This 81-nucleotide RNA belongs to the Rfam family "freshwater-2 RNA". Rfam's curators put it in the seed alignment. Pairs were carried over by alignment from the consensus structure, which is taken from published work.

RNA sequence: ACUUACAUGGUGUAAGUUUUAUGCGGAAAUCCAACCGCGUAUCGGCCUAGAACGCCGCUUUUUCUUAAGGAGAAAUAAAUG
Numbered sequence: 001a002c003u004u005a006c007a008u009g010g011u012g013u014a015a016g017u018u019u020u021a022u023g024c025g026g027a028a029a030u031c032c033a034a035c036c037g038c039g040u041a042u043c044g045g046c047c048u049a050g051a052a053c054g055c056c057g058c059u060u061u062u063u064c065u066u067a068a069g070g071a072g073a074a075a076u077a078a079a080u081g
Stems, first nucleotide, its partner, number of pairs: 001017006020041007043057004